[Rfam]
The record is a 116-nucleotide sequence from Medicago truncatula, which matches "MIR2593 microRNA precursor family" in Rfam. NCBI's taxonomy places the organism under Eukaryota, Spermatophyta, Magnoliopsida, Fabales, Medicago. Rfam 15.1 lists 1,262 matches to the family in 6 species.
RNA sequence: AUAUAAGCAAAAAUCUAAUUUUUUAGAUACAUUCAGUUAAUGAUGUAUGUGGUCUUUAUUAUAUGUUAUAUACAUCAUUAAUUGAAUAUAUUUAAAAAAUAUAUUUUUGCUUAUAU
Numbered sequence: 001a002u003a004u005a006a007g008c009a010a011a012a013a014u015c016u017a018a019u020u021u022u023u024u025a026g027a028u029a030c031a032u033u034c035a036g037u038u039a040a041u042g043a044u045g046u047a048u049g050u051g052g053u054c055u056u057u058a059u060u061a062u063a064u065g066u067u068a069u070a071u072a073c074a075u076c077a078u079u080a081a082u083u084g085a086a087u088a089u090a091u092u093u094a095a096a097a098a099a100u101a102u103a104u105u106u107u108u109g110c111u112u113a114u115a116u
Base pairs, nucleotide, nucleotide: 002115003114004113005112006111007110009108010107011106012105013104016101017100019099020098021097022096023095024094025093026092028090029089031087032086033085034084035083036082037081038080039079040078041077042076043075044074045073050068051067052066053065
Dot-bracket structure: .((((((.(((((..((.((((((((.((.(((((((((((((((....((((...........))))....))))))))))))))).)).))))))))))..))))).)))))).